Rfam assigns this 98-nucleotide RNA from Clostridium vincentii to the family "Purine riboswitch aptamer".
Its family is annotated with purine nucleobase biosynthetic process in the Gene Ontology.
Pairs were carried over by alignment from the consensus structure, which is taken from published work.
Taxonomically the source falls in Clostridium (Bacteria, Bacillati, Bacillota, Eubacteriales).
RNA sequence: AUAAAAUGCACAUUUAAAACUCGUAUAUCCCCUGGAUAAGGCAGGGAGUAUCUAGCGGAAGCCGUAAAUUUCCGACUAUGAGUGAAUUAAUAUACUAA
Numbered sequence: 001a002u003a004a005a006a007u008g009c010a011c012a013u014u015u016a017a018a019a020c021u022c023g024u025a026u027a028u029c030c031c032c033u034g035g036a037u038a039a040g041g042c043a044g045g046g047a048g049u050a051u052c053u054a055g056c057g058g059a060a061g062c063c064g065u066a067a068a069u070u071u072c073c074g075a076c077u078a079u080g081a082g083u084g085a086a087u088u089a090a091u092a093u094a095c096u097a098a
Stems, first nucleotide, its partner, number of pairs: 019083007030046005056074006